[Rfam]
RNA sequence: UAUUUUAGAAUUAACUUGACCUGUAUAUGUCUAGUAAUAAGGACUGGACGUUUCUACCGAGCUGCCGUAAAUAGCUUGACUACAGAGGAAUGAAUUUAGCUA
Numbered sequence: 001u002a003u004u005u006u007a008g009a010a011u012u013a014a015c016u017u018g019a020c021c022u023g024u025a026u027a028u029g030u031c032u033a034g035u036a037a038u039a040a041g042g043a044c045u046g047g048a049c050g051u052u053u054c055u056a057c058c059g060a061g062c063u064g065c066c067g068u069a070a071a072u073a074g075c076u077u078g079a080c081u082a083c084a085g086a087g088g089a090a091u092g093a094a095u096u097u098a099g100c101u102a
Base pairs, nucleotide, nucleotide: 021085022084023083024082025081029049030048031047032046033045034044035043058078059077060076061075062074063073064072
The record is a 102-nucleotide sequence from Cytobacillus dafuensis, which matches "Purine riboswitch aptamer" in Rfam.
The source organism's lineage runs through Bacteria, Bacilli, Caryophanales, Bacillaceae and Cytobacillus.